[Rfam]
RNA sequence: CGACCUGCCGUCGCCUCUUGACGAAACUCGCUAGUCGUUAGCAUGACCGGCGGGUUUCGUCU
Numbered sequence: 001c002g003a004c005c006u007g008c009c010g011u012c013g014c015c016u017c018u019u020g021a022c023g024a025a026a027c028u029c030g031c032u033a034g035u036c037g038u039u040a041g042c043a044u045g046a047c048c049g050g051c052g053g054g055u056u057u058c059g060u061c062u
Stems, first nucleotide, its partner, number of pairs: 001013004020061013034047005
Shown here is a 62-nucleotide RNA sequence from Pseudomonas aeruginosa, a member of the family "Pseudomonas sRNA P37". A reference for the family is Livny et al. (2006), "Identification of 17 Pseudomonas aeruginosa sRNAs and prediction of sRNA-encoding genes in 10 diverse pathogens using the bioinformatic tool sRNAPredict2", Nucleic Acids Res. The sequence is in the family's curated seed alignment. The source organism's lineage runs through Bacteria, Gammaproteobacteria, Pseudomonadaceae, Pseudomonas and Pseudomonas aeruginosa. Rfam classes the family as a small RNA.